The family of this 98-nucleotide sequence from Lentilactobacillus curieae is "S10-Clostridia ribosomal protein leader". For this family Rfam cites "Discovery of 20 novel ribosomal leader candidates in bacteria and archaea" (Eckert and Weinberg, BMC Microbiol, 2020).

[Rfam]
RNA sequence: AGAUAGCUUUGAUGUGAAAGGUUGCGACACACCCGGAUGCUUUGCCAUGGGUUUGGCGGUAAUUUUCACGGAGUUAGUCAUAUUUUUAAAAUAGACGA
Numbered sequence: 001a002g003a004u005a006g007c008u009u010u011g012a013u014g015u016g017a018a019a020g021g022u023u024g025c026g027a028c029a030c031a032c033c034c035g036g037a038u039g040c041u042u043u044g045c046c047a048u049g050g051g052u053u054u055g056g057c058g059g060u061a062a063u064u065u066u067c068a069c070g071g072a073g074u075u076a077g078u079c080a081u082a083u084u085u086u087u088a089a090a091a092u093a094g095a096c097g098a
Base pairs, nucleotide, nucleotide: 014069015068016067018066019065020064021063025058026057028055029054078098079097083095084094085093

By type it is a cis-regulatory leader.